A member of the RNA family "6S / SsrS RNA" from Massilia sp. NR 4-1, 180 nucleotides long. Lineage of the source: Bacteria > Pseudomonadati > Pseudomonadota > Burkholderiales > Massilia. It scores 74 bits against the family's covariance model. The literature on the family includes a 2017 paper in RNA Biol by Elkina et al., "6S RNA in Rhodobacter sphaeroides: 6S RNA and pRNA transcript levels peak in late exponential phase and gene deletion causes a high salt stress phenotype". The family's RNA type in Rfam is non-coding RNA gene.
RNA sequence: GUCACCCUGCAGUGUUCGCGAUUGUCAUAUAUUCCUUGAACCAUUUACAUGCAUCGGUUGCGGGAAUUUGCUCGGCGGGCGUGAGCGUCGCUAGUCCGAUGAACCCGAAGCUGAACUAACUGCAACCACCUUGAACCGUAAGGUUCGGGAUGCCGGCAUAGCGGCACAGGCGGGGCACUU
Number, nucleotide and partner (000 for none) at each position: 001g000002u000003c000004a000005c175006c174007c173008u172009g171010c170011a000012g167013u166014g165015u164016u000017c163018g162019c161020g000021a000022u000023u000024g000025u000026c000027a000028u000029a000030u000031a000032u000033u150034c149035c148036u000037u147038g146039a145040a144041c143042c142043a000044u000045u000046u000047a000048c000049a000050u000051g000052c000053a000054u000055c000056g127057g126058u125059u000060g123061c122062g121063g120064g000065a000066a000067u000068u000069u000070g116071c000072u114073c113074g112075g111076c110077g000078g000079g000080c000081g105082u000083g000084a000085g000086c101087g100088u099089c098090g097091c000092u000093a000094g000095u000096c000097c090098g089099a088100u087101g086102a000103a000104c000105c081106c000107g000108a000109a000110g076111c075112u074113g073114a072115a000116c070117u000118a000119a000120c063121u062122g061123c060124a000125a058126c057127c056128a000129c000130c000131u000132u000133g000134a000135a000136c000137c000138g000139u000140a000141a000142g042143g041144u040145u039146c038147g037148g035149g034150a033151u000152g000153c000154c000155g000156g000157c000158a000159u000160a000161g019162c018163g017164g015165c014166a013167c012168a000169g000170g010171c009172g008173g007174g006175g005176c000177a000178c000179u000180u000